[Rfam]
Notes: A member of the RNA family "mir-255 microRNA precursor family" from Caenorhabditis angaria, 64 nucleotides long. The family's consensus secondary structure was predicted with RNAalifold. Its family is annotated with miRNA-mediated post-transcriptional gene silencing and RISC complex in the Gene Ontology.

RNA sequence: GUAAGAAAUCUUUGAUAGUUCUCCAGCAAAAUAAAAUUGCGAAAACUGAAAAGAUUUUUUACAG
Dot-bracket structure: (((((((((((((..(((((.(((((..........))).)).))))).)))))))))))))..